RNA sequence: UCUAAUCUUCGGGGCAGGGUGCAAUUCCCGACCGGCGGUGAGGGGUAUGCUUACUCUAAGUCCGCGAACCAUAAUUUCAAUUCUUAUGGUUGAUCUGGUGUAAUUCCAGGACCGACAGUUACAGUCUGGAUGGGAGAAGAUGUCG
Dot-bracket structure: ....((((((......(((.......))).[[((((((.....................[[))))..(((.................)))...(((((.......)))))]])).(((.....]]))).......))))))....